[Rfam]
RNA sequence: UGGAUCCGGUGUAACUGGCGACAACUGUGGAUCAAACCACGAUGGAGCACCGGAUGAUACGGCCGGUCGCCUGGGCAAAAGAG
Numbered sequence: 001u002g003g004a005u006c007c008g009g010u011g012u013a014a015c016u017g018g019c020g021a022c023a024a025c026u027g028u029g030g031a032u033c034a035a036a037c038c039a040c041g042a043u044g045g046a047g048c049a050c051c052g053g054a055u056g057a058u059a060c061g062g063c064c065g066g067u068c069g070c071c072u073g074g075g076c077a078a079a080a081g082a083g
Base pairs, nucleotide, nucleotide: 004055005054006053007052008051009050010049011048012047015044017071018070019069020068021067027040028039029038030037062076063075064074
Record summary:
ZMP/ZTP riboswitch aptamer (pfl RNA motif): an 83-nucleotide RNA from Paenibacillus albilobatus. The organism belongs to Paenibacillus, within Bacteria. For this family Rfam cites "Recognition of the bacterial alarmone ZMP through long-distance association of two RNA subdomains" (Jones and Ferre-D'Amare, Nat Struct Mol Biol, 2015). Pairs were carried over by alignment from the consensus structure, which is taken from published work.